[Rfam]
RNA sequence: CUUCCCAUUUACUUGCUGCUCUAGUCUCUCAGUGGCAGGAGCAGUUAUACGCAUGGGAUAAAAUAAUAUCAGACAAUUGUAAAUUGAGAUUUUUCUCUCUUCUGCAUGGUCUAGACGUUG
Number, nucleotide and partner (000 for none) at each position: 001c000002u000003u058004c057005c056006c055007a054008u053009u000010u000011a000012c000013u000014u000015g045016c044017u043018g042019c041020u040021c039022u037023a000024g000025u035026c034027u000028c000029u000030c000031a000032g000033u000034g026035g025036c000037a022038g000039g021040a020041g019042c018043a017044g016045u015046u000047a000048u000049a000050c000051g000052c000053a008054u007055g006056g005057g004058a003059u000060a000061a000062a000063a000064u000065a000066a000067u000068a000069u114070c000071a112072g111073a110074c109075a000076a107077u000078u106079g105080u104081a103082a000083a000084u000085u000086g099087a098088g097089a096090u000091u000092u000093u000094u000095c000096u089097c088098u087099c086100u000101u000102c000103u081104g080105c079106a078107u076108g000109g074110u073111c072112u071113a000114g069115a000116c000117g000118u000119u000120g000

Rfam assigns this 120-nucleotide sequence from Microtus ochrogaster to the family "Small nucleolar RNA SNORA20". Rfam classes the family as an H/ACA-box small nucleolar RNA. Rfam links the family to the GO terms nucleolus and RNA processing. Lineage of the source: Eukaryota > Amniota > Euarchontoglires > Cricetidae > Microtus. About the family: ACA20 is a member of the H/ACA class of snoRNA that guide the sites of modification of uridines to pseudouridines.